Shown here is a 296-nucleotide RNA from Nyctiprogne leucopyga, a member of the family "Metazoan signal recognition particle RNA". A search with the family's covariance model found it, with a score of 145 bits. For this family Rfam cites "Towards the structure of the mammalian signal recognition particle" (Wild et al., Curr Opin Struct Biol, 2002). The family's consensus secondary structure is taken from published work. By type it is a non-coding RNA gene. The signal recognition particle (SRP) is a universally conserved ribonucleoprotein.

RNA sequence: GCUGGACACAGUGGCCUGUGCCUGUAAUCCCAGUGCCAGGGAGGCUGAAACUGGUGGAUGGCUUGAGCUGGGGGGUUCUGGGCUGUACCGAGCUGUGCUGAGCGGGUGUCUGUGGUAAGUUCAGCAUUGAUAUGGUUCUUGGGGAGCUGGGGGCCACCAAGUCGACUAAGGAGGGGUGAACCAGCCCAGGUCGGAGAGGGAGGAGGUCAGAAUUCCUGUGGUGAUGGGUAGUGGGAUGGUGCCUGUGAACAGUCCCUGUAGCACAGCCUGGGUGGGAGAUCAGGACCCGGUUUCCU
Numbered sequence: 001g002c003u004g005g006a007c008a009c010a011g012u013g014g015c016c017u018g019u020g021c022c023u024g025u026a027a028u029c030c031c032a033g034u035g036c037c038a039g040g041g042a043g044g045c046u047g048a049a050a051c052u053g054g055u056g057g058a059u060g061g062c063u064u065g066a067g068c069u070g071g072g073g074g075g076u077u078c079u080g081g082g083c084u085g086u087a088c089c090g091a092g093c094u095g096u097g098c099u100g101a102g103c104g105g106g107u108g109u110c111u112g113u114g115g116u117a118a119g120u121u122c123a124g125c126a127u128u129g130a131u132a133u134g135g136u137u138c139u140u141g142g143g144g145a146g147c148u149g150g151g152g153g154c155c156a157c158c159a160a161g162u163c164g165a166c167u168a169a170g171g172a173g174g175g176g177u178g179a180a181c182c183a184g185c186c187c188a189g190g191u192c193g194g195a196g197a198g199g200g201a202g203g204a205g206g207u208c209a210g211a212a213u214u215c216c217u218g219u220g221g222u223g224a225u226g227g228g229u230a231g232u233g234g235g236a237u238g239g240u241g242c243c244u245g246u247g248a249a250c251a252g253u254c255c256c257u258g259u260a261g262c263a264c265a266g267c268c269u270g271g272g273u274g275g276g277a278g279a280u281c282a283g284g285a286c287c288c289g290g291u292u293u294c295c296u
Base pairs, nucleotide, nucleotide: 001045002044003043004023005022007020008019009018010017011016028042029041030040047294048293049292050291051290052289053288054287059283061281063279064278067273068272069271071269072268073267078266079265080264082262083261084260085259086258087257090254092253093252094251095250096249098247102246103245104244105243106242107241108240109239110235111234113233114232116230117229121224122223123222125220126219127218128164129163130162131161133159134158135157136153137152138151139150140149141148142147166170172217173216174215175214176213177212184207185206186205191200192199